[Rfam]
RNA sequence: UACUACCAAACCCUAUCUCCAACCUCCACGUGGUGAUCGCUGGGAGUUCUUUCUUUAUGAAAAACUGCAGACGGAGAAGG
Numbered sequence: 001u002a003c004u005a006c007c008a009a010a011c012c013c014u015a016u017c018u019c020c021a022a023c024c025u026c027c028a029c030g031u032g033g034u035g036a037u038c039g040c041u042g043g044g045a046g047u048u049c050u051u052u053c054u055u056u057a058u059g060a061a062a063a064a065c066u067g068c069a070g071a072c073g074g075a076g077a078a079g080g
Base pairs, nucleotide, nucleotide: 012080013079014078016076018075019074020073022034023033024032046066048064050062051061052060054059
This 80-nucleotide RNA from Hermetia illucens belongs to the Rfam family "drz-agam-1 ribozyme". The match comes from Rfam's covariance-model search (38 bits). Gene Ontology term of the family: catalytic activity. Rfam 15.1 lists 10,507 matches to the family in 53 species.